[Rfam]
RNA sequence: ACCAUCCUUUUCUUGGGGUAGUGCUACUGUCCAAUGAAUGAGCUGUGAGGGCAAUACUACUAACGCCUACACAACAUGCCCGCAUCAACUAGAGCUUUGCUUUACUUUGGUGCAAUUUUUGAAAAA
Dot-bracket structure: .....((((.....))))..(((..(.(((((.....((.....))..))))).)..))).....................((((((..((((((...))))))...)))))).............
RNA: U4atac minor spliceosomal RNA
Organism: Microcebus murinus